Source information: Actino-pnp RNA: a 68-nucleotide RNA from Nocardia mangyaensis. The match comes from Rfam's covariance-model search (56 bits). Pairs were carried over by alignment from the consensus structure, which is taken from published work.

RNA sequence: GUCGGUCUUCGGUAGUGGCCUUUCGGCAGGCGUUUCCCGCCGCCGUCGGGCUUCGAUCGAUGACCGCC
Numbered sequence: 001g002u003c004g005g006u007c008u009u010c011g012g013u014a015g016u017g018g019c020c021u022u023u024c025g026g027c028a029g030g031c032g033u034u035u036c037c038c039g040c041c042g043c044c045g046u047c048g049g050g051c052u053u054c055g056a057u058c059g060a061u062g063a064c065c066g067c068c
Base pairs, nucleotide, nucleotide: 001068003066004065005064006063007062009060010059011058012057013056017052018051019050021048024045025044026043027042029041030040031039